Overview
Small nucleolar RNA snoR74: a 157-nucleotide RNA from Zea mays.
[Rfam]
RNA sequence: AAAAAAGCAGGACUUUGUGCUCUCUCUUUAAACAGUGUCCCCGUAAACUUUAGGUACAUAAUAUGUAUGUCCAUCGUUAUUGGGUGAACCUUUGGACGCUCGUUCAUGUGUUGGACGGUCUCUCGUGUCCAUUGGUUCAGUAAACGAUGGUACACUU
Numbered sequence: 001a002a003a004a005a006a007g008c009a010g011g012a013c014u015u016u017g018u019g020c021u022c023u024c025u026c027u028u029u030a031a032a033c034a035g036u037g038u039c040c041c042c043g044u045a046a047a048c049u050u051u052a053g054g055u056a057c058a059u060a061a062u063a064u065g066u067a068u069g070u071c072c073a074u075c076g077u078u079a080u081u082g083g084g085u086g087a088a089c090c091u092u093u094g095g096a097c098g099c100u101c102g103u104u105c106a107u108g109u110g111u112u113g114g115a116c117g118g119u120c121u122c123u124c125g126u127g128u129c130c131a132u133u134g135g136u137u138c139a140g141u142a143a144a145c146g147a148u149g150g151u152a153c154a155c156u157u
Base pairs, nucleotide, nucleotide: 005050006049007048011039012038015035016034017033071150072149073148074147075146076145077144078143085139086138087137088136089135090134
Rfam classes the family as an H/ACA-box small nucleolar RNA.